[Rfam]
Nucleotides: 196
Base pairs, nucleotide, nucleotide: 022170023169025167026166029163030162031161032160033159034158035157036156037155038154039153040152041151042150043149044148045147046146
Number, partner (000 for none) and nucleotide at each position: 001000a002000a003000u004000a005000a006000g007000u008000g009000c010000a011000g012000u013000u014000u015000u016000g017000c018000a019000u020000u021000g022170u023169c024000c025167a026166a027000c028000g029163u030162u031161u032160g033159a034158c035157u036156g037155u038154u039153u040152g041151u042150c043149u044148u045147a046146u047000u048000u049000a050000a051000a052000u053000u054000u055000u056000u057000u058000u059000a060000u061000g062000a063000u064000u065000a066000u067000u068000a069000u070000u071000u072000u073000u074000u075000u076000a077000u078000u079000a080000g081000a082000u083000g084000g085000u086000a087000a088000a089000a090000c091000a092000u093000u094000a095000a096000u097000a098000a099000u100000a101000c102000u103000u104000u105000a106000u107000a108000u109000g110000u111000g112000a113000c114000u115000a116000u117000u118000u119000u120000u121000u122000u123000a124000a125000a126000a127000a128000a129000a130000a131000u132000u133000g134000a135000u136000a137000a138000a139000u140000u141000u142000u143000c144000a145000a146046a147045u148044a149043a150042g151041a152040u153039a154038a155037a156036c157035g158034g159033u160032c161031a162030a163029a164000a165000a166026u167025u168000a169023g170022a171000c172000a173000u174000g175000g176000a177000u178000a179000u180000c181000c182000a183000c184000g185000g186000u187000u188000g189000c190000a191000c192000u193000u194000a195000u196000u